[Rfam]
RNA sequence: UUGCCUCAAAUUAAUGAGUAAGGAUAAUAUAGGAUUUGGGUGAUACCUUAUCCACAUAUACGCAAGUAUAUGAGGUUCACCAAAUAUUUGGCGGGAUAUAGACUGGCCUCGAUUGGUUCUUUCCUACAUUGAAAGUUCUAGUUGAGAUUGCUGGUCUCCCG
Numbered sequence: 001u002u003g004c005c006u007c008a009a010a011u012u013a014a015u016g017a018g019u020a021a022g023g024a025u026a027a028u029a030u031a032g033g034a035u036u037u038g039g040g041u042g043a044u045a046c047c048u049u050a051u052c053c054a055c056a057u058a059u060a061c062g063c064a065a066g067u068a069u070a071u072g073a074g075g076u077u078c079a080c081c082a083a084a085u086a087u088u089u090g091g092c093g094g095g096a097u098a099u100a101g102a103c104u105g106g107c108c109u110c111g112a113u114u115g116g117u118u119c120u121u122u123c124c125u126a127c128a129u130u131g132a133a134a135g136u137u138c139u140a141g142u143u144g145a146g147a148u149u150g151c152u153g154g155u156c157u158c159c160c161g
Stems, first nucleotide, its partner, number of pairs: 004023003008019001032053004038047002055072005092161005101156007110144002113141004119135005
Dot-bracket structure: ...(((.(..........).)))........((((..((......))..)))).(((((........)))))...................(((((....(((((((..((.((((..(((((.......)))))..)))).)).....))))))))))))
A member of the RNA family "U12 minor spliceosomal RNA" from Funneliformis mosseae, 161 nucleotides long. Its Rfam clan is "U2 clan". The pairing is the family consensus, mapped onto this sequence. It scores 72 bits against the family's covariance model. Rfam classes the family as a spliceosomal small nuclear RNA. The source organism's lineage runs through Eukaryota, Opisthokonta, Fungi, Glomeromycetes and Funneliformis.